RNA sequence: UCUUCAUUUUUCACACACUCUCACCGGACAGAGAGGCGAGAGAGUGUGUACAAAAUGAAGAGA
Numbered sequence: 001u002c003u004u005c006a007u008u009u010u011u012c013a014c015a016c017a018c019u020c021u022c023a024c025c026g027g028a029c030a031g032a033g034a035g036g037c038g039a040g041a042g043a044g045u046g047u048g049u050a051c052a053a054a055a056u057g058a059a060g061a062g063a
Stems, first nucleotide, its partner, number of pairs: 001061007010052001013049005019041004